[Rfam]
RNA sequence: UAUAUUUCACUCCAGACCCCUCGCCAGACUCCUGAGAAACGCCAGGUAAACGUUUGCCUACACACACCCUAAUCGCAACCUCAGGGUUGCGGCACGCCGGAUAAACAACACGGAACGUCAGGAAAGGGUCAAUGGCCGUUAUGCUAAUUCAAUAAGCCUGGAAUUUUGUCUCAUCUUGAGGAAAAGGGGAAGCGUUAAAAACAGUUAUCAAUAUAAAACAUGAGAGAUUUUUGUGCGGAAAUCUGUAAAAAUGCUCUAUAUCACUUUUUGUGUGGGAAUAAAAAGGAGAAAACUUGAUGAGUACCGACCUGAAAUUUUCAUUGAUCACCACGCUUAUUGUUCUCGGCGUGAUUGUCGCAGGUGGAUUAACUGCCGCACUGCACUGAUAU
Numbered sequence: 001u002a003u004a005u006u007u008c009a010c011u012c013c014a015g016a017c018c019c020c021u022c023g024c025c026a027g028a029c030u031c032c033u034g035a036g037a038a039a040c041g042c043c044a045g046g047u048a049a050a051c052g053u054u055u056g057c058c059u060a061c062a063c064a065c066a067c068c069c070u071a072a073u074c075g076c077a078a079c080c081u082c083a084g085g086g087u088u089g090c091g092g093c094a095c096g097c098c099g100g101a102u103a104a105a106c107a108a109c110a111c112g113g114a115a116c117g118u119c120a121g122g123a124a125a126g127g128g129u130c131a132a133u134g135g136c137c138g139u140u141a142u143g144c145u146a147a148u149u150c151a152a153u154a155a156g157c158c159u160g161g162a163a164u165u166u167u168g169u170c171u172c173a174u175c176u177u178g179a180g181g182a183a184a185a186g187g188g189g190a191a192g193c194g195u196u197a198a199a200a201a202c203a204g205u206u207a208u209c210a211a212u213a214u215a216a217a218a219c220a221u222g223a224g225a226g227a228u229u230u231u232u233g234u235g236c237g238g239a240a241a242u243c244u245g246u247a248a249a250a251a252u253g254c255u256c257u258a259u260a261u262c263a264c265u266u267u268u269u270g271u272g273u274g275g276g277a278a279u280a281a282a283a284a285g286g287a288g289a290a291a292a293c294u295u296g297a298u299g300a301g302u303a304c305c306g307a308c309c310u311g312a313a314a315u316u317u318u319c320a321u322u323g324a325u326c327a328c329c330a331c332g333c334u335u336a337u338u339g340u341u342c343u344c345g346g347c348g349u350g351a352u353u354g355u356c357g358c359a360g361g362u363g364g365a366u367u368a369a370c371u372g373c374c375g376c377a378c379u380g381c382a383c384u385g386a387u388a389u
Base pairs, nucleotide, nucleotide: 015130016129017128018127020126021125023029030123031122032121033120034119035118041093042092043091044059045058046057047056048055049054075090076089077088078087079086097113098112099111141195142194143193144192145191148162149161150160151159169187170186171185174182175181237305238304265284267282269280270279271278

A member of the RNA family "Enterobacterial sRNA STnc550" from Salmonella enterica, 389 nucleotides long.
The family's consensus secondary structure was predicted with CMfinder.
By type it is a small RNA.
Lineage of the source: Bacteria > Pseudomonadati > Enterobacterales > Salmonella enterica > Salmonella enterica subsp. arizonae.